[Rfam]
RNA sequence: CAGUGUUACAGGUUUUAGAAUUUGUUUAGCAGGCUUUCUGGUCUUCGUCGGAAACCCCGU
Numbered sequence: 001c002a003g004u005g006u007u008a009c010a011g012g013u014u015u016u017a018g019a020a021u022u023u024g025u026u027u028a029g030c031a032g033g034c035u036u037u038c039u040g041g042u043c044u045u046c047g048u049c050g051g052a053a054a055c056c057c058c059g060u
Stems, first nucleotide, its partner, number of pairs: 032057002035054008
A member of the RNA family "U7 small nuclear RNA" from Aotus nancymaae, 60 nucleotides long. The base pairs follow the family's consensus structure, which was predicted with PFOLD.